[Rfam]
RNA sequence: UUGUCAACUGGAGUUCUCCUCAAACCACUUCAGUAGCUAGCUAGCUUAACUAUGUCUCAGUGCAUUGACACUUUUGUAAGUGUGCGUAGUGAGCUUGACAGCUGUGCAUAGUGAAGUGUUUGGGAGAACUCUGGGUGGCAA
Numbered sequence: 001u002u003g004u005c006a007a008c009u010g011g012a013g014u015u016c017u018c019c020u021c022a023a024a025c026c027a028c029u030u031c032a033g034u035a036g037c038u039a040g041c042u043a044g045c046u047u048a049a050c051u052a053u054g055u056c057u058c059a060g061u062g063c064a065u066u067g068a069c070a071c072u073u074u075u076g077u078a079a080g081u082g083u084g085c086g087u088a089g090u091g092a093g094c095u096u097g098a099c100a101g102c103u104g105u106g107c108a109u110a111g112u113g114a115a116g117u118g119u120u121u122g123g124g125a126g127a128a129c130u131c132u133g134g135g136u137g138g139c140a141a
Base pairs, nucleotide, nucleotide: 005137006136008134009133011131012130013129014128015127016126017125018124019123020122022121023120024119026118027117028116029115030114031113032112034110035109
mir-395 microRNA precursor family: a 141-nucleotide RNA sequence from Aegilops tauschii. A reference for the family is Jones-Rhoades and Bartel (2004), "Computational Identification of Plant MicroRNAs and Their Targets, Including a Stress-Induced miRNA", Mol Cell. About the family: mir-395 was identified in both Arabidopsis thaliana and Oryza sativa computationally and was later experimentally verified. mir-395 is thought to target mRNAs coding for ATP sulphurylases. The mature sequence is excised from the 3' arm of the hairpin. The organism belongs to Aegilops tauschii, within Eukaryota.